[Rfam]
RNA: mir-148/mir-152 microRNA precursor family
RNA sequence: CCAGGCCCAAGUUCUGUGGUACACUCUGACUCUGGAUCAGUGGCAGUCAGUGCAUAACAGAACUUUGGUCUGAA
Numbered sequence: 001c002c003a004g005g006c007c008c009a010a011g012u013u014c015u016g017u018g019g020u021a022c023a024c025u026c027u028g029a030c031u032c033u034g035g036a037u038c039a040g041u042g043g044c045a046g047u048c049a050g051u052g053c054a055u056a057a058c059a060g061a062a063c064u065u066u067g068g069u070c071u072g073a074a
Base pairs, nucleotide, nucleotide: 004070005069006068007067009065010064011063012062013061014060015059016058022052023051024050025049028048029047030046031045
Dot-bracket structure: ...((((.((((((((.....((((..((((.............)))))))).....)))))))).))))....